[Rfam]
RNA sequence: CUUUCAACCCACCCCUAGCCGGAAUGGUUGUUGAAAU
Numbered sequence: 001c002u003u004u005c006a007a008c009c010c011a012c013c014c015c016u017a018g019c020c021g022g023a024a025u026g027g028u029u030g031u032u033g034a035a036a037u
Stems, first nucleotide, its partner, number of pairs: 005033004009027002014022002
A member of the RNA family "CRISPR RNA direct repeat element" from Amazonocrinis nigriterrae, 37 nucleotides long. Lineage of the source: Bacteria > Cyanobacteriota > Nostocaceae > Amazonocrinis > Amazonocrinis nigriterrae.